[Rfam]
RNA: Flavo-1 RNA
Organism: Flavobacterium johnsoniae
RNA sequence: CACUAGCCCCGAUGGCAGUGGAAAUCCUUUUGUGCCGGUGUUCGGCACAAAAGAUUGAAGCGAACAGCGGGAAAAAGC
Numbered sequence: 001c002a003c004u005a006g007c008c009c010c011g012a013u014g015g016c017a018g019u020g021g022a023a024a025u026c027c028u029u030u031u032g033u034g035c036c037g038g039u040g041u042u043c044g045g046c047a048c049a050a051a052a053g054a055u056u057g058a059a060g061c062g063a064a065c066a067g068c069g070g071g072a073a074a075a076a077g078c
Stems, first nucleotide, its partner, number of pairs: 009070003013066002018061002023056004029051008